[Rfam]
RNA: FMN riboswitch aptamer (RFN element)
Organism: Gordonia mangrovi
Nucleotides: 159
Base pairs, nucleotide, nucleotide: 005155006154007153008152009151010150017029018028019027031139032138033128034127035078036077037076038075073126074125081104082103108124109123110122111121112120130142131141132140
Number, partner (000 for none) and nucleotide at each position: 001000c002000a003000g004000a005155g006154u007153u008152c009151u010150c011000g012000g013000g014000g015000c016000g017029g018028g019027g020000u021000g022000a023000g024000a025000u026000u027019c028018c029017c030000c031139a032138c033128c034127g035078g036077c037076g038075g039000u040000g041000a042000u043000g044000g045000c046000g047000u048000a049000c050000u051000c052000a053000c054000a055000c056000a057000c058000c059000c060000g061000u062000g063000a064000g065000g066000a067000a068000g069000c070000c071000g072000a073126g074125c075038c076037c077036g078035c079000g080000a081104g082103c083000g084000c085000c086000u087000g088000c089000c090000a091000c092000c093000g094000g095000c096000a097000g098000g099000g100000a101000c102000a103082g104081c105000a106000g107000a108124u109123c110122c111121g112120g113000u114000g115000u116000g117000a118000a119000u120112c121111c122110g123109g124108a125074g126073c127034c128033g129000a130142c131141g132140g133000u134000c135000a136000u137000a138032g139031u140132c141131c142130g143000g144000a145000u146000g147000u148000g149000a150010g151009a152008g153007a154006a155005c156000c157000g158000g159000g